[Rfam]
RNA sequence: GCGCUUUGCGAAUUCACGGGUCUUAUCUUGUGGUAUGAACUGAGUACGUAAUGAUUUAUGGUGCAUAUUGGGGGCUUACCAUAAGAUAAUGCCAUGAAUUCGCAAAGCGU
Numbered sequence: 001g002c003g004c005u006u007u008g009c010g011a012a013u014u015c016a017c018g019g020g021u022c023u024u025a026u027c028u029u030g031u032g033g034u035a036u037g038a039a040c041u042g043a044g045u046a047c048g049u050a051a052u053g054a055u056u057u058a059u060g061g062u063g064c065a066u067a068u069u070g071g072g073g074g075c076u077u078a079c080c081a082u083a084a085g086a087u088a089a090u091g092c093c094a095u096g097a098a099u100u101c102g103c104a105a106a107g108c109g110u
Stems, first nucleotide, its partner, number of pairs: 002109015019093003024088012037075001040072002043069004048064003